Shown here is a 67-nucleotide sequence from Denticeps clupeoides, a member of the family "mir-33 microRNA precursor family". The family has 73 seed sequences and 1,467 matches in Rfam 15.1. Gene Ontology terms of the family: RISC complex and gene silencing by miRNA. The literature on the family includes a 2010 paper in Mol Hum Reprod by Ahn et al., "MicroRNA transcriptome in the newborn mouse ovaries determined by massive parallel sequencing". A search with the family's covariance model found it, with a score of 76 bits.

[Rfam]
RNA sequence: CUGUGGUGCAUUGUAGUUGCAUUGCAUGUGUAUAAUCUGAGUGCAGUGUUUCUGCAGUGCAACACAG
Numbered sequence: 001c002u003g004u005g006g007u008g009c010a011u012u013g014u015a016g017u018u019g020c021a022u023u024g025c026a027u028g029u030g031u032a033u034a035a036u037c038u039g040a041g042u043g044c045a046g047u048g049u050u051u052c053u054g055c056a057g058u059g060c061a062a063c064a065c066a067g
Base pairs, nucleotide, nucleotide: 001067002066003065004064006063007061008060009059010058011057012056013055014054015053016052019049021047022046023045024044025043026042027041